This 233-nucleotide part of an RNA from Pontibacter cellulosilyticus belongs to the Rfam family "Bacterial large subunit ribosomal RNA". The base pairs follow the family's consensus structure, which is taken from published work. NCBI's taxonomy places the organism under Bacteria, Cytophagia, Cytophagales, Hymenobacteraceae, Pontibacter. Rfam 15.1 lists 51,934 matches to the family in 10,816 species.
[Rfam]
RNA sequence: GAGUUACUCCUCCCUGGCAAGGUUAAGCUUCUUGAGGAGCGGAGCCGCAGCGAAAGCGAGUCUGAACAGGGCGCACAGUCAGGGGGGGUAGACGCGAAACUUUGUGAUCUACCCAUGGGCAGGAUGAAGUUUGGGUAAAACCAAAUGGAGGUCCGAACCAGUUUACGUUGAAAAGUAUUUGGAUGACCUGUGGGUAGGGGUGAAAGGCCAAUCAAACUGAGAAAUAGCUCGUA
Number, nucleotide and partner (000 for none) at each position: 001g000002a000003g000004u000005u090006a089007c088008u000009c087010c086011u085012c084013c083014c082015u081016g080017g079018c078019a000020a000021g046022g045023u044024u043025a000026a000027g040028c039029u038030u000031c000032u000033u000034g000035a000036g000037g000038a029039g028040c027041g000042g000043a024044g023045c022046c021047g000048c000049a000050g057051c056052g000053a000054a000055a000056g051057c050058g000059a000060g072061u071062c070063u069064g000065a000066a000067c000068a000069g063070g062071g061072c060073g000074c000075a000076c000077a000078g018079u017080c016081a015082g014083g013084g012085g011086g010087g009088g007089u006090a005091g000092a000093c231094g230095c000096g228097a000098a000099a000100c221101u220102u219103u000104g217105u216106g000107a000108u000109c197110u196111a195112c194113c193114c192115a191116u190117g189118g188119g187120c185121a000122g154123g153124a152125u151126g000127a000128a000129g146130u145131u144132u143133g142134g141135g000136u000137a000138a000139a000140a000141c134142c133143a132144a131145a130146u129147g000148g000149a000150g000151g125152u124153c123154c122155g000156a000157a000158c182159c181160a180161g000162u000163u000164u177165a176166c175167g000168u000169u000170g000171a000172a000173a000174a000175g166176u165177a164178u000179u000180u160181g159182g158183a000184u000185g120186a000187c119188c118189u117190g116191u115192g114193g113194g112195u111196a110197g109198g000199g209200g208201u207202g000203a000204a000205a000206g000207g201208c200209c199210a000211a000212u000213c000214a000215a000216a105217c104218u000219g102220a101221g100222a000223a000224a000225u000226a000227g000228c096229u000230c094231g093232u000233a000